[Rfam]
Nucleotides: 100
Base pairs, nucleotide, nucleotide: 010089011088013086014085015084016083017082040060041059042058044056045055046054
Number, partner (000 for none) and nucleotide at each position: 001000u002000a003000g004000g005000g006000a007000c008000c009000a010089g011088a012000g013086a014085c015084u016083u017082c018000c019000c020000u021000g022000u023000c024000a025000u026000c027000u028000c029000a030000g031000g032000g033000u034000a035000a036000c037000a038000u039000c040060g041059c042058u043000u044056c045055c046054g047000a048000c049000u050000g051000u052000g053000u054046c055045g056044g057000u058042g059041g060040c061000c062000a063000g064000a065000u066000g067000a068000c069000a070000a071000g072000u073000g074000a075000c076000a077000g078000c079000c080000a081000c082017g083016a084015a085014g086013u087000a088011u089010c090000a091000c092000a093000g094000c095000u096000c097000a098000a099000c100000g

Annotation
Shown here is a 100-nucleotide RNA from Methanococcoides burtonii, a member of the family "Pyrrolysine insertion sequence 1". Its family is annotated with pyrrolysine incorporation in the Gene Ontology. On this family, see Theobald-Dietrich et al., Biochimie 2005: "Evidence for the existence in mRNAs of a hairpin element responsible for ribosome dependent pyrrolysine insertion into proteins".